[Rfam]
RNA sequence: UCCGGUCCUCGGUAGUGGCUCGCGGAACGAGCGGCAGCGCCGGACGGUCCGCGGACCUCGAUCGAAGACCGCC
Numbered sequence: 001u002c003c004g005g006u007c008c009u010c011g012g013u014a015g016u017g018g019c020u021c022g023c024g025g026a027a028c029g030a031g032c033g034g035c036a037g038c039g040c041c042g043g044a045c046g047g048u049c050c051g052c053g054g055a056c057c058u059c060g061a062u063c064g065a066a067g068a069c070c071g072c073c
Base pairs, nucleotide, nucleotide: 003071004070005069006068007067009065010064011063012062013061017057018056020054021053022052023051024050025049026048028046029045
Record summary: Rfam assigns this 73-nucleotide RNA from Actinotalea fermentans to the family "Actino-pnp RNA". Pairs were carried over by alignment from the consensus structure, which is taken from published work. It scores 55 bits against the family's covariance model. The family's RNA type in Rfam is cis-regulatory element.